Shown here is a 111-nucleotide RNA from Pectobacterium atrosepticum, a member of the family "Alpha operon ribosome binding site". The bacterial alpha operon ribosome binding site is surrounded by this complex pseudoknotted structure. Translation of the mRNA produces 4 ribosomal protein products, one of which (S4) acts as a translational repressor by binding to the nested pseudoknot region. The mechanism of repression is thought to involve a conformational switch in the pseudoknot region and ribosome entrapment. Rfam's curators put it in the seed alignment. NCBI's taxonomy places the organism under Bacteria, Pseudomonadati, Enterobacterales, Pectobacteriaceae, Pectobacterium atrosepticum.
RNA sequence: UAGCUGCAACAUUAUUUGAGUAUCCUGAAAACGGGCUUUUCAGAAUGGUGUUGCCGUAUAAAAUUGUAGGAGUGCAUAGUGGCCCGUAUAGCAGGCAUUAACAUUCCUGAU
Numbered sequence: 001u002a003g004c005u006g007c008a009a010c011a012u013u014a015u016u017u018g019a020g021u022a023u024c025c026u027g028a029a030a031a032c033g034g035g036c037u038u039u040u041c042a043g044a045a046u047g048g049u050g051u052u053g054c055c056g057u058a059u060a061a062a063a064u065u066g067u068a069g070g071a072g073u074g075c076a077u078a079g080u081g082g083c084c085c086g087u088a089u090a091g092c093a094g095g096c097a098u099u100a101a102c103a104u105u106c107c108u109g110a111u
Base pairs, nucleotide, nucleotide: 004056006054007053008052009051010050011049012048013047024095025094026093032086033085034084035083040110041109042108

The family's consensus secondary structure is taken from published work. Its family is annotated with ribosome binding in the Gene Ontology.